[Rfam]
RNA sequence: UAACACAUAUCUGCUCCCGCUAACCAAGACCUAUGGGAGGAUAAAUUACGUCUUUCAUAUCCGAAAGUGAGGGAUUUUCGGAAAUAAGUUUCGCUU
Number, nucleotide and partner (000 for none) at each position: 001u000002a000003a000004c000005a000006c000007a000008u000009a000010u000011c000012u000013g000014c039015u038016c037017c036018c035019g000020c000021u000022a000023a000024c000025c000026a054027a053028g052029a051030c050031c000032u000033a000034u000035g018036g017037g016038a015039g014040g000041a000042u000043a000044a000045a000046u000047u000048a000049c000050g030051u029052c028053u027054u026055u000056c000057a000058u000059a000060u082061c081062c080063g079064a078065a077066a076067g000068u000069g000070a000071g000072g000073g000074a000075u000076u066077u065078u064079c063080g062081g061082a060083a000084a000085u000086a000087a000088g000089u000090u000091u000092c000093g000094c000095u000096u000

PhotoRC-II RNA: a 96-nucleotide RNA sequence. Pairs were carried over by alignment from the consensus structure, which is taken from published work.